The family of this 585-nucleotide part of an RNA from Silvibacterium dinghuense is "Bacterial small subunit ribosomal RNA".
Pairs were carried over by alignment from the consensus structure, which is taken from published work.
RNA sequence: UGACGGGGGCCCGCACAAGCGGUGGAGCAUGUGGUUUAAUUCGACGCAACGCGAAGAACCUUACCUGGGCUCGAAAUGUAGAGGAAUCCGGUGGAAACAUCGGCGCCUAGCAAUAGGCCUCUAUAUAGGUGCUGCAUGGCUGUCGUCAGCUCGUGUCGUGAGAUGUUGGGUUAAGUCCCGCAACGAGCGCAACCCUUAUUACCAGUUGCUACCAUUUAGUUGAGCACUCUGGUGAGACCGCCUCGGAUAACGGGGAGGAAGGCGGGGAUGACGUCAAGUCCUCAUGGCCUUUAUGUCCAGGGCUACACACGUGCUACAAUGGUCGGUACAAACCGUCGCAAACCCGCGAGGGGGAGCUAAUCGGAAAAAGCCGACCUCAGUUCGGAUUACAGUCUGCAACUCGACUGUAUGAAGCUGGAAUCGCUAGUAAUCGCGGAUCAGAAUGCCGCGGUGAAUACGUUCCCGGGCCUUGUACACACCGCCCGUCACAUCACGAAAGUGGGUUGCACUAGAAGCAGGUGAGCCAACCGCAAGGGGGCAGCCUUCCAAGGUGUAAUUCAUGAUUGGGGUGAAGUCGUAACAAGG
Numbered sequence: 001u002g003a004c005g006g007g008g009g010c011c012c013g014c015a016c017a018a019g020c021g022g023u024g025g026a027g028c029a030u031g032u033g034g035u036u037u038a039a040u041u042c043g044a045c046g047c048a049a050c051g052c053g054a055a056g057a058a059c060c061u062u063a064c065c066u067g068g069g070c071u072c073g074a075a076a077u078g079u080a081g082a083g084g085a086a087u088c089c090g091g092u093g094g095a096a097a098c099a100u101c102g103g104c105g106c107c108u109a110g111c112a113a114u115a116g117g118c119c120u121c122u123a124u125a126u127a128g129g130u131g132c133u134g135c136a137u138g139g140c141u142g143u144c145g146u147c148a149g150c151u152c153g154u155g156u157c158g159u160g161a162g163a164u165g166u167u168g169g170g171u172u173a174a175g176u177c178c179c180g181c182a183a184c185g186a187g188c189g190c191a192a193c194c195c196u197u198a199u200u201a202c203c204a205g206u207u208g209c210u211a212c213c214a215u216u217u218a219g220u221u222g223a224g225c226a227c228u229c230u231g232g233u234g235a236g237a238c239c240g241c242c243u244c245g246g247a248u249a250a251c252g253g254g255g256a257g258g259a260a261g262g263c264g265g266g267g268a269u270g271a272c273g274u275c276a277a278g279u280c281c282u283c284a285u286g287g288c289c290u291u292u293a294u295g296u297c298c299a300g301g302g303c304u305a306c307a308c309a310c311g312u313g314c315u316a317c318a319a320u321g322g323u324c325g326g327u328a329c330a331a332a333c334c335g336u337c338g339c340a341a342a343c344c345c346g347c348g349a350g351g352g353g354g355a356g357c358u359a360a361u362c363g364g365a366a367a368a369a370g371c372c373g374a375c376c377u378c379a380g381u382u383c384g385g386a387u388u389a390c391a392g393u394c395u396g397c398a399a400c401u402c403g404a405c406u407g408u409a410u411g412a413a414g415c416u417g418g419a420a421u422c423g424c425u426a427g428u429a430a431u432c433g434c435g436g437a438u439c440a441g442a443a444u445g446c447c448g449c450g451g452u453g454a455a456u457a458c459g460u461u462c463c464c465g466g467g468c469c470u471u472g473u474a475c476a477c478a479c480c481g482c483c484c485g486u487c488a489c490a491u492c493a494c495g496a497a498a499g500u501g502g503g504u505u506g507c508a509c510u511a512g513a514a515g516c517a518g519g520u521g522a523g524c525c526a527a528c529c530g531c532a533a534g535g536g537g538g539c540a541g542c543c544u545u546c547c548a549a550g551g552u553g554u555a556a557u558u559c560a561u562g563a564u565u566g567g568g569g570u571g572a573a574g575u576c577g578u579a580a581c582a583a584g585g
Base pairs, nucleotide, nucleotide: 001476002475003473004472005471007470008469009468010467011466012465013464015460016459019424020423021422022421023420024317026315027314028313029312030311031310032309033308034306035305040055041054042053043052064301065300066299067298068297069296070295076126077125078124080122081121082120083119084118088103089102090101091100092099093098106117107116108115109114128290129289131288132287133286134285137284138283139279140278141277142275144273145272149188150187151186152185153184154183155164156163157162167180168179169178170177194267195266196265197264199235200234201233202232203231204230205229209224210223213222214221238258239257241255242254243253244252245251321376322375323374324373325372326371327370333364334363335362338357339356343352344351345350383414388409389408390407391406392405393404394403430452431451432450433449434448435447436446479584481581484577485576489571490570491569492568494566495565496564499561500560501559502558503557504556505555506554507553508552509551510550515546517544518543519542520541523539524538525537528535529534